[Rfam]
RNA: RAGATH-18 RNA
RNA sequence: CCUUCGGAGCGUUAUAUCAAACGUGAGUAGCAGAACACCGUGAAAGCGGACGCGAUGAACAAGGAA
Dot-bracket structure: ((((....(((((........(((.....((........))....)))))))).......))))..